About this RNA: This 113-nucleotide RNA from a Chlorobiales bacterium belongs to the Rfam family "TPP riboswitch aptamer (THI element)". Lineage of the source: Bacteria > Pseudomonadati > Chlorobiota > Chlorobiia > Chlorobiales.
RNA sequence: AUCUCAUCUUUGGGGUGCUGUCCGUAUGUGGAAAUCAUGUCGGAACGGCUGAGACGAUACCCAACGAACCUGAAGCAGGUAAUACUGACGCAGGGAAAGAUGAUCACGCCGCC
Number, nucleotide and partner (000 for none) at each position: 001a000002u000003c000004u000005c000006a101007u100008c099009u098010u097011u063012g062013g061014g060015g000016u057017g049018c048019u047020g046021u045022c000023c000024g000025u000026a000027u000028g000029u000030g000031g000032a000033a000034a000035u000036c000037a000038u000039g000040u000041c000042g000043g000044a000045a021046c020047g019048g018049c017050u000051g000052a000053g000054a000055c000056g000057a016058u000059a000060c014061c013062c012063a011064a000065c000066g000067a000068a000069c094070c093071u092072g091073a000074a000075g000076c087077a086078g085079g000080u000081a000082a000083u000084a000085c078086u077087g076088a000089c000090g000091c072092a071093g070094g069095g000096a000097a010098a009099g008100a007101u006102g000103a000104u000105c000106a000107c000108g000109c000110c000111g000112c000113c000